RNA sequence: UCACCGAACCAGGAGCAGACCCAUGAAGUUCAAGCACAUUCUGAUGCUCACCCUGGGUGCCGCCGCGGUUGCAGCACUGCCGGCCAUUGCGCAGACCGCUCCGCCACAGGGGCAGGGCGCCAGCGCGCAGAAGGCCAAUGACGACAAGGCCAAGACCGAGGCCGAGCGCAAGGCCGAGCGCCGCGCCGCUGCUGCCAAGGCCAAGCCGGAAGCAGGCCAGGCCCCGCGCGAAGAAGAGGAAGAAGAGAAGCCGUCGCGCUGAGGACAGCGCAGGUUUCGCCCGCAGACGCCCCGGCUCCGGCCGGGGCGUCUGCAUUUGCACGGUGUGCGUGCAU
Numbered sequence: 001u002c003a004c005c006g007a008a009c010c011a012g013g014a015g016c017a018g019a020c021c022c023a024u025g026a027a028g029u030u031c032a033a034g035c036a037c038a039u040u041c042u043g044a045u046g047c048u049c050a051c052c053c054u055g056g057g058u059g060c061c062g063c064c065g066c067g068g069u070u071g072c073a074g075c076a077c078u079g080c081c082g083g084c085c086a087u088u089g090c091g092c093a094g095a096c097c098g099c100u101c102c103g104c105c106a107c108a109g110g111g112g113c114a115g116g117g118c119g120c121c122a123g124c125g126c127g128c129a130g131a132a133g134g135c136c137a138a139u140g141a142c143g144a145c146a147a148g149g150c151c152a153a154g155a156c157c158g159a160g161g162c163c164g165a166g167c168g169c170a171a172g173g174c175c176g177a178g179c180g181c182c183g184c185g186c187c188g189c190u191g192c193u194g195c196c197a198a199g200g201c202c203a204a205g206c207c208g209g210a211a212g213c214a215g216g217c218c219a220g221g222c223c224c225c226g227c228g229c230g231a232a233g234a235a236g237a238g239g240a241a242g243a244a245g246a247g248a249a250g251c252c253g254u255c256g257c258g259c260u261g262a263g264g265a266c267a268g269c270g271c272a273g274g275u276u277u278c279g280c281c282c283g284c285a286g287a288c289g290c291c292c293c294g295g296c297u298c299c300g301g302c303c304g305g306g307g308c309g310u311c312u313g314c315a316u317u318u319g320c321a322c323g324g325u326g327u328g329c330g331u332g333c334a335u
Stems, first nucleotide, its partner, number of pairs: 021239002028179004034174002042170002045168005056078005062072002082136004096116002100112003117128004148163003182230005191206003212222002256333004283314014
Proteobacterial sRNA sX6: a 335-nucleotide RNA sequence from Xanthomonas campestris. Rfam's curators put it in the seed alignment. A reference for the family is Schmidtke et al. (2011), "Genome-wide transcriptome analysis of the plant pathogen Xanthomonas identifies sRNAs with putative virulence functions", Nucleic Acids Res.